[Rfam]
Shown here is an 88-nucleotide RNA sequence from Astyanax mexicanus, a member of the family "mir-731 microRNA precursor family". Taxonomically the source falls in Astyanax (Eukaryota, Opisthokonta, Metazoa, Otophysi). The base pairs follow the family's consensus structure, which was predicted with RNAalifold. A search with the family's covariance model found it, with a score of 79 bits.
RNA sequence: AGAUGUUGCUGUAAAAUGACACGUUUUCUCCCGGAUUGCCAGAAAUCAGUCGCCACCGGGAACUUCGUGUCAGCCCAGAGUGACAUCA
Numbered sequence: 001a002g003a004u005g006u007u008g009c010u011g012u013a014a015a016a017u018g019a020c021a022c023g024u025u026u027u028c029u030c031c032c033g034g035a036u037u038g039c040c041a042g043a044a045a046u047c048a049g050u051c052g053c054c055a056c057c058g059g060g061a062a063c064u065u066c067g068u069g070u071c072a073g074c075c076c077a078g079a080g081u082g083a084c085a086u087c088a
Stems, first nucleotide, its partner, number of pairs: 002087009017072007029061006036055001038053002042051002